[Rfam]
RNA: Glycine riboswitch aptamer
Organism: Sphingomonas sp. NBWT7
RNA sequence: CGUGGGCGCGCGGGAGAGUGCGGACGGCCUUCCAGGCCACCAUCCGCCGCCGAAGGAGCAACCACCCCGGAAUCUCUCAGGCAUCAGGGACCGCGCGCGCGAU
Numbered sequence: 001c002g003u004g005g006g007c008g009c010g011c012g013g014g015a016g017a018g019u020g021c022g023g024a025c026g027g028c029c030u031u032c033c034a035g036g037c038c039a040c041c042a043u044c045c046g047c048c049g050c051c052g053a054a055g056g057a058g059c060a061a062c063c064a065c066c067c068c069g070g071a072a073u074c075u076c077u078c079a080g081g082c083a084u085c086a087g088g089g090a091c092c093g094c095g096c097g098c099g100c101g102a103u
Stems, first nucleotide, its partner, number of pairs: 006098008020047004049082003052078002056076003062070002